Rfam assigns this 111-nucleotide RNA to the family "SAH (S-adenosyl-L-homocysteine) riboswitch aptamer". The base pairs follow the family's consensus structure, which is taken from published work. It scores 40 bits against the family's covariance model. A reference for the family is Wang et al. (2008), "Riboswitches that sense S-adenosylhomocysteine and activate genes involved in coenzyme recycling", Mol Cell.
RNA sequence: CCACCUGAGGAGCGUUGCGACGACCGGCACCACGCCAGGCCGCCAGGCUCAGGUAACGGAUCGGCGGCGGCCCCAGGCGGCGCCGGUCCACGGCAACGGCGCUCGCCCCAC
Dot-bracket structure: ..((((((............((.((............)).))......)))))).........................................................
Numbered sequence: 001c002c003a004c005c006u007g008a009g010g011a012g013c014g015u016u017g018c019g020a021c022g023a024c025c026g027g028c029a030c031c032a033c034g035c036c037a038g039g040c041c042g043c044c045a046g047g048c049u050c051a052g053g054u055a056a057c058g059g060a061u062c063g064g065c066g067g068c069g070g071c072c073c074c075a076g077g078c079g080g081c082g083c084c085g086g087u088c089c090a091c092g093g094c095a096a097c098g099g100c101g102c103u104c105g106c107c108c109c110a111c
Stems, first nucleotide, its partner, number of pairs: 003054006021042002024039002